This 93-nucleotide RNA from Rhodoferax fermentans belongs to the Rfam family "c-di-GMP-I riboswitch aptamer". The match comes from Rfam's covariance-model search (81 bits).
RNA sequence: CGCUGACACAGGCAAACCUGACGAAAGUCAGGGACGCAAAGCCACCGGGCUUCGGCACUGAUCGCACAGUGCCAUGCCAGCGGGGUUGCCGGA
Dot-bracket structure: ...........((...((((((....))))))...))..((((.((((((....((((((......))))))...)))..)))))))......
Numbered sequence: 001c002g003c004u005g006a007c008a009c010a011g012g013c014a015a016a017c018c019u020g021a022c023g024a025a026a027g028u029c030a031g032g033g034a035c036g037c038a039a040a041g042c043c044a045c046c047g048g049g050c051u052u053c054g055g056c057a058c059u060g061a062u063c064g065c066a067c068a069g070u071g072c073c074a075u076g077c078c079a080g081c082g083g084g085g086u087u088g089c090c091g092g093a
Stems, first nucleotide, its partner, number of pairs: 012037002017032006040087004045083003048078003055072006
Record summary: NCBI's taxonomy places the organism under Bacteria, Pseudomonadati, Pseudomonadota, Burkholderiales, Rhodoferax. About the family: GEMM was predicted in a large-scale screen for bacterial structured RNA regulatory elements.